This 132-nucleotide RNA sequence from Xenopus tropicalis belongs to the Rfam family "Small nucleolar RNA SNORA71". About the family: The members of this family belong to the H/ACA class of snoRNAs which bind a number of proteins (including dyskerin, Gar1p and Nop10p) to form snoRNP complexes. This class of snoRNAs are thought to guide the sites of modification of uridines to pseudouridines by forming direct base pairing interactions with substrate RNAs. This family includes U71 (SNORA71), ACA39 (SNORA39) and ACA60 (SNORA60). U71 and ACA60 are predicted to guide the pseudouridylation of U406 and U1004 in 18S rRNA respectively. The organism belongs to Silurana, within Eukaryota. It is annotated as an H/ACA-box small nucleolar RNA. A reference for the family is Ganot et al. (1997), "The family of box ACA small nucleolar RNAs is defined by an evolutionarily conserved secondary structure and ubiquitous sequence elements essential for RNA accumulation", Genes Dev.
[Rfam]
RNA sequence: ACCUGCAUCGAAAGUGAUUAGGGUUUCCUUGUGGCCCAGUCAUUGAUACUGCAGGAAGAGUAAAAUGUUAAAGCUUAUCCCGUGUUUGGCGAGUGUGACUUUGUAUUAGCCAAACCCUGUGACUUUUGCACA
Number, nucleotide and partner (000 for none) at each position: 001a000002c055003c054004u053005g052006c051007a050008u000009c000010g000011a000012a000013a044014g043015u042016g041017a040018u039019u038020a000021g000022g036023g035024u034025u033026u000027c000028c000029u000030u000031g000032u000033g025034g024035c023036c022037c000038a019039g018040u017041c016042a015043u014044u013045g000046a000047u000048a000049c000050u007051g006052c005053a004054g003055g002056a000057a000058g000059a000060g000061u000062a000063a000064a000065a000066u000067g000068u128069u000070a126071a125072a124073g123074c000075u000076u000077a000078u000079c000080c000081c000082g000083u000084g115085u114086u113087u112088g111089g000090c000091g107092a106093g000094u000095g000096u000097g000098a000099c000100u000101u000102u000103g000104u000105a000106u092107u091108a000109g000110c000111c088112a087113a086114a085115c084116c000117c000118u000119g000120u000121g000122a000123c073124u072125u071126u070127u000128g068129c000130a000131c000132a000
It scores 77 bits against the family's covariance model.
The base pairs follow the family's consensus structure, which was predicted with PFOLD.